The record is a 307-nucleotide sequence from Striga hermonthica, which matches "Plant signal recognition particle RNA" in Rfam. A search with the family's covariance model found it, with a score of 226 bits. The family's consensus secondary structure is taken from published work. Its Rfam clan is "SRP clan". By type it is a non-coding RNA gene. Lineage of the source: Eukaryota > Viridiplantae > Embryophyta > eudicotyledons > Striga.

[Rfam]
RNA sequence: GCCGAGUUGGGUAACGCCAGCUUGUAACCUUAGUAGGGGCAUUAAGGGUGAUUGGACACGGGUCUGCUCAGCUAGUUGGGCCUUUGGGUUGUCAAAUGCUGGCCCGCCCGUUCCAAGUAGGGAGUUGGGCCGCGUGGUCCAUGCGAAUGCUUGGGCUUCGUGGUCCGUAGAGUGGAGGGCAUUGCGUUAGGCUGGCCUCACAGAGCAGCGAAAACCUCCCUCUCUCUACAGUGGGAGGAUAACGGGCCGGUGCUGUCUUGGCCCAAUAAAAGUUAUAGGGGCUAGUCCUAAGUGGACAAACAUUUUU
Numbered sequence: 001g002c003c004g005a006g007u008u009g010g011g012u013a014a015c016g017c018c019a020g021c022u023u024g025u026a027a028c029c030u031u032a033g034u035a036g037g038g039g040c041a042u043u044a045a046g047g048g049u050g051a052u053u054g055g056a057c058a059c060g061g062g063u064c065u066g067c068u069c070a071g072c073u074a075g076u077u078g079g080g081c082c083u084u085u086g087g088g089u090u091g092u093c094a095a096a097u098g099c100u101g102g103c104c105c106g107c108c109c110g111u112u113c114c115a116a117g118u119a120g121g122g123a124g125u126u127g128g129g130c131c132g133c134g135u136g137g138u139c140c141a142u143g144c145g146a147a148u149g150c151u152u153g154g155g156c157u158u159c160g161u162g163g164u165c166c167g168u169a170g171a172g173u174g175g176a177g178g179g180c181a182u183u184g185c186g187u188u189a190g191g192c193u194g195g196c197c198u199c200a201c202a203g204a205g206c207a208g209c210g211a212a213a214a215c216c217u218c219c220c221u222c223u224c225u226c227u228a229c230a231g232u233g234g235g236a237g238g239a240u241a242a243c244g245g246g247c248c249g250g251u252g253c254u255g256u257c258u259u260g261g262c263c264c265a266a267u268a269a270a271a272g273u274u275a276u277a278g279g280g281g282c283u284a285g286u287c288c289u290a291a292g293u294g295g296a297c298a299a300a301c302a303u304u305u306u307u
Base pairs, nucleotide, nucleotide: 001040002039003038004023005022006021007020008019009018010017028037029036030035044307045306046305047304048303049302050301052299053298054297057294058293060289061288062286063285066282067281068280069279073275074274075273076272077271078264079263080262081261082260087256089255091253093252094251099250100249101248102247103246104245105244106243108238109237111236112235113234114233115232117229118228119227120226121225122224123223124222127166128165129164130163131162132161133160134159136157137156138155139154140153141152143150144149174219175218176217177216178215183212185210186209187208192203193202194201